Shown here is a 118-nucleotide sequence from Abrus precatorius, a member of the family "MIR397 microRNA precursor family". It scores 60 bits against the family's covariance model. Gene Ontology terms of the family: RISC complex and miRNA-mediated post-transcriptional gene silencing. The family's consensus secondary structure was predicted with WAR.
RNA sequence: AAAAAAAACAUGAUUGAGUGCAGGGUCGAUGACAGAACCACCAUUAUUAAGCAUCUGGCUAAGAGACACAAGUUAAUUAGUGAGAGCUUCAUCAACGCUGCACUCAAUGAUGUUUUUC
Numbered sequence: 001a002a003a004a005a006a007a008a009c010a011u012g013a014u015u016g017a018g019u020g021c022a023g024g025g026u027c028g029a030u031g032a033c034a035g036a037a038c039c040a041c042c043a044u045u046a047u048u049a050a051g052c053a054u055c056u057g058g059c060u061a062a063g064a065g066a067c068a069c070a071a072g073u074u075a076a077u078u079a080g081u082g083a084g085a086g087c088u089u090c091a092u093c094a095a096c097g098c099u100g101c102a103c104u105c106a107a108u109g110a111u112g113u114u115u116u117u118c
Stems, first nucleotide, its partner, number of pairs: 006115006013108011025096002028093001030091003
Dot-bracket structure: .....((((((.(((((((((((.((.(.(((........................................................))).).)).))))))))))).))))))...